[Rfam]
RNA: ZMP/ZTP riboswitch aptamer (pfl RNA motif)
RNA sequence: UCAUCGGCCGCUACUGGCGAGGGUGGAGUACCACCGGGGAACCGGCCGGCUCGAGAGAGUGUGUUGCGCCGACCGCCUGGGCGCUUCCG
Numbered sequence: 001u002c003a004u005c006g007g008c009c010g011c012u013a014c015u016g017g018c019g020a021g022g023g024u025g026g027a028g029u030a031c032c033a034c035c036g037g038g039g040a041a042c043c044g045g046c047c048g049g050c051u052c053g054a055g056a057g058a059g060u061g062u063g064u065u066g067c068g069c070c071g072a073c074c075g076c077c078u079g080g081g082c083g084c085u086u087c088c089g
Stems, first nucleotide, its partner, number of pairs: 004049007014038002016077004023034004066084005